[Rfam]
RNA sequence: CGGGAGAACACUGGUUAAGGAACUCUGCAAAAUGAUCCCGUAAGUUCGCGAUAAGGGAUGCCCCUGGUGGUUUACGCUGCUGGGGGCCACAGUAAAUCGAUUUCUCCGACUGUUUAUCAAAAACACAGGUCUCUGCUAACACGUAAGUGGAUGUAUAGAGACUGACGCCUGCCCGGUGCUGGUAGGUUAAGGUAAGAGGUUAGUUAUUUAUAACGAAGCUUUUGACCGAAGCCCCAGUAAACGGCGGCCGUAACUAUGACGGUCCUAAGGUAGCGAAGUUCCUUGUCGGGUAAGUUCCGACCUGCAUGAAAGGCGUAACGAGAGAAAUACUGUCUCAACCAGUGACCCG
Numbered sequence: 001c002g003g004g005a006g007a008a009c010a011c012u013g014g015u016u017a018a019g020g021a022a023c024u025c026u027g028c029a030a031a032a033u034g035a036u037c038c039c040g041u042a043a044g045u046u047c048g049c050g051a052u053a054a055g056g057g058a059u060g061c062c063c064c065u066g067g068u069g070g071u072u073u074a075c076g077c078u079g080c081u082g083g084g085g086g087c088c089a090c091a092g093u094a095a096a097u098c099g100a101u102u103u104c105u106c107c108g109a110c111u112g113u114u115u116a117u118c119a120a121a122a123a124c125a126c127a128g129g130u131c132u133c134u135g136c137u138a139a140c141a142c143g144u145a146a147g148u149g150g151a152u153g154u155a156u157a158g159a160g161a162c163u164g165a166c167g168c169c170u171g172c173c174c175g176g177u178g179c180u181g182g183u184a185g186g187u188u189a190a191g192g193u194a195a196g197a198g199g200u201u202a203g204u205u206a207u208u209u210a211u212a213a214c215g216a217a218g219c220u221u222u223u224g225a226c227c228g229a230a231g232c233c234c235c236a237g238u239a240a241a242c243g244g245c246g247g248c249c250g251u252a253a254c255u256a257u258g259a260c261g262g263u264c265c266u267a268a269g270g271u272a273g274c275g276a277a278g279u280u281c282c283u284u285g286u287c288g289g290g291u292a293a294g295u296u297c298c299g300a301c302c303u304g305c306a307u308g309a310a311a312g313g314c315g316u317a318a319c320g321a322g323a324g325a326a327a328u329a330c331u332g333u334c335u336c337a338a339c340c341a342g343u344g345a346c347c348c349g
Stems, first nucleotide, its partner, number of pairs: 001349004009344008018335003035059005044049001060087012088092001100328007107320002111125003128163008136153001140149003166315004171245003176242002178238005185233003191227002195223006203214004246264006265269001275302001285301006

The record is a 349-nucleotide part of an RNA from Adhaeretor mobilis, which matches "Bacterial large subunit ribosomal RNA" in Rfam. The match comes from Rfam's covariance-model search (2709 bits).